[Rfam]
RNA sequence: CAUUUAGAAUCGCUGAAUUUCCUUGUUAUGUAAGGGAAAUGGGGGAACCAAUAAAUUGAUGAUGCAUAAGCGGUGUGAGAGCCGUCUCAUGUAUCAUCUGGGGUGAAUCCUAUUACGAAUAUCAUGAAAUUCGUAAUAGGUAGGGCGACUCUCACCGCCCGAAUCCGACAGCUAACCUCGUAAGCGUUGGAAUGCAGUUGC
Numbered sequence: 001c002a003u004u005u006a007g008a009a010u011c012g013c014u015g016a017a018u019u020u021c022c023u024u025g026u027u028a029u030g031u032a033a034g035g036g037a038a039a040u041g042g043g044g045g046a047a048c049c050a051a052u053a054a055a056u057u058g059a060u061g062a063u064g065c066a067u068a069a070g071c072g073g074u075g076u077g078a079g080a081g082c083c084g085u086c087u088c089a090u091g092u093a094u095c096a097u098c099u100g101g102g103g104u105g106a107a108u109c110c111u112a113u114u115a116c117g118a119a120u121a122u123c124a125u126g127a128a129a130u131u132c133g134u135a136a137u138a139g140g141u142a143g144g145g146c147g148a149c150u151c152u153c154a155c156c157g158c159c160c161g162a163a164u165c166c167g168a169c170a171g172c173u174a175a176c177c178u179c180g181u182a183a184g185c186g187u188u189g190g191a192a193u194g195c196a197g198u199u200g201c
Stems, first nucleotide, its partner, number of pairs: 011186004018038009039181006049100002101166003109140012143160004
The record is a 201-nucleotide RNA sequence from Paenibacillus sp. IHBB 10380, which matches "c-di-AMP riboswitch aptamer (ydaO/yuaA leader)" in Rfam. NCBI's taxonomy places the organism under Bacteria, Bacillati, Bacillota, Paenibacillaceae, Paenibacillus.